Overview: Rfam assigns this 68-nucleotide RNA sequence from Streptomyces sp. C to the family "ASdes TB sRNA". It is one of the family's seed sequences. For this family Rfam cites "Identification of small RNAs in Mycobacterium tuberculosis" (Arnvig and Young, Mol Microbiol, 2009). Pairs were carried over by alignment from the consensus structure, which is taken from published work. It is annotated as a small RNA. The family has 26 seed sequences and 1,192 matches in Rfam 15.1.

RNA sequence: AGCUUGUCCGGGUCCACGGCGCGCGAGGCCAGCAGGUAGUCGCGCAUCACGAUGCCGUGGCGGCCCUC
Numbered sequence: 001a002g003c004u005u006g007u008c009c010g011g012g013u014c015c016a017c018g019g020c021g022c023g024c025g026a027g028g029c030c031a032g033c034a035g036g037u038a039g040u041c042g043c044g045c046a047u048c049a050c051g052a053u054g055c056c057g058u059g060g061c062g063g064c065c066c067u068c
Base pairs, nucleotide, nucleotide: 004063005062006061008059011030012029013028015027017025018024035056036055037054038053040052041051042050044048
Dot-bracket structure: ...(((.(..(((.(.((.....)).))))....((((.(((.(...).)))))))..).))).....